[Rfam]
RNA: FMN riboswitch aptamer (RFN element)
RNA sequence: UUUAAUUCUCAGGGCGGGGCGAAAUUCCCCACCGGCGGUGAUGUUAACUUACCCUAAUGUAAACUUAACUAAGCCCGCGAGCGCUCGAUUCGUCGAGGUCAGCAGAUUUGGUGAUGUAGAUGUAAUGUCUACGAUUCCAGAGCCGACGGUUAUAGUCCGGAUGAGAGAGAAUAGAA
Numbered sequence: 001u002u003u004a005a006u007u008c009u010c011a012g013g014g015c016g017g018g019g020c021g022a023a024a025u026u027c028c029c030c031a032c033c034g035g036c037g038g039u040g041a042u043g044u045u046a047a048c049u050u051a052c053c054c055u056a057a058u059g060u061a062a063a064c065u066u067a068a069c070u071a072a073g074c075c076c077g078c079g080a081g082c083g084c085u086c087g088a089u090u091c092g093u094c095g096a097g098g099u100c101a102g103c104a105g106a107u108u109u110g111g112u113g114a115u116g117u118a119g120a121u122g123u124a125a126u127g128u129c130u131a132c133g134a135u136u137c138c139a140g141a142g143c144c145g146a147c148g149g150u151u152a153u154a155g156u157c158c159g160g161a162u163g164a165g166a167g168a169g170a171a172u173a174g175a176a
Stems, first nucleotide, its partner, number of pairs: 003174001005172006017029003031156002033145002035078004073143002081103002107141005147159003